A member of the RNA family "6S-Flavo RNA" from Flavobacterium cerinum, 106 nucleotides long. A search with the family's covariance model found it, with a score of 96 bits. The family's consensus secondary structure is taken from published work. The family's RNA type in Rfam is small RNA. The source organism's lineage runs through Bacteria, Pseudomonadati, Flavobacteriia, Flavobacteriaceae and Flavobacterium.
[Rfam]
RNA sequence: ACUCAACACUAACAUUUUAAAAUGGGUAAAUCGCCGCUUCUAUAGCAUGCUGCCUCGAGCAGAUCCUUGAACAGCGGGUUAGCCCAAAACUUGUCUAAACGAGUUU
Numbered sequence: 001a002c003u004c005a006a007c008a009c010u011a012a013c014a015u016u017u018u019a020a021a022a023u024g025g026g027u028a029a030a031u032c033g034c035c036g037c038u039u040c041u042a043u044a045g046c047a048u049g050c051u052g053c054c055u056c057g058a059g060c061a062g063a064u065c066c067u068u069g070a071a072c073a074g075c076g077g078g079u080u081a082g083c084c085c086a087a088a089a090c091u092u093g094u095c096u097a098a099a100c101g102a103g104u105u106u
Stems, first nucleotide, its partner, number of pairs: 023086005034077005044067002050062004